[Rfam]
RNA sequence: CCGCAUCUUUGAAAACCCCUCAGUGGCCUUUGUGACCAACGGGACAAAAAAGGAUGCUAGAGAAAAUCGGGAAUUCCAAGGCAGAGGGCUAGAUCAGUGGCCUUCGGCCAUUUCACCUCCUGGACAUUA
Numbered sequence: 001c002c003g004c005a006u007c008u009u010u011g012a013a014a015a016c017c018c019c020u021c022a023g024u025g026g027c028c029u030u031u032g033u034g035a036c037c038a039a040c041g042g043g044a045c046a047a048a049a050a051a052g053g054a055u056g057c058u059a060g061a062g063a064a065a066a067u068c069g070g071g072a073a074u075u076c077c078a079a080g081g082c083a084g085a086g087g088g089c090u091a092g093a094u095c096a097g098u099g100g101c102c103u104u105c106g107g108c109c110a111u112u113u114c115a116c117c118u119c120c121u122g123g124a125c126a127u128u129a
Base pairs, nucleotide, nucleotide: 003057004056005055006054008050009049010048018043019042020041025037026036062128063127067123068122069121070120071119072118080109081108082107084105085104086103088101089100